[Rfam]
RNA sequence: GUAUGCUUCACGCGUGAUUCGCGCUCAAACUCAUCUCCGGCGUCGCCACCCGUUGCUCCCGUAGGGAAGCCGCUGGCGCGUCAAGGAUUGUCGUGCUGAAUUACCGCGCACCGGAAUAGUAAAGCCACGGCCUUCCGUGGCUUUUGU
Numbered sequence: 001g002u003a004u005g006c007u008u009c010a011c012g013c014g015u016g017a018u019u020c021g022c023g024c025u026c027a028a029a030c031u032c033a034u035c036u037c038c039g040g041c042g043u044c045g046c047c048a049c050c051c052g053u054u055g056c057u058c059c060c061g062u063a064g065g066g067a068a069g070c071c072g073c074u075g076g077c078g079c080g081u082c083a084a085g086g087a088u089u090g091u092c093g094u095g096c097u098g099a100a101u102u103a104c105c106g107c108g109c110a111c112c113g114g115a116a117u118a119g120u121a122a123a124g125c126c127a128c129g130g131c132c133u134u135c136c137g138u139g140g141c142u143u144u145u146g147u
Stems, first nucleotide, its partner, number of pairs: 005117001007115002009095004018090001030086002038080002042077003045073002049069001053065001121144010
Description:
Shown here is a 147-nucleotide RNA, a member of the family "Burkholderia sRNA 7". The match comes from Rfam's covariance-model search (69 bits). It is annotated as a small RNA. Did not show any change in expression in iron-depletion and hydrogen peroxide (oxidative stress) treatment. Constitutively expressed. Possibly targets the GTPase, ObgE.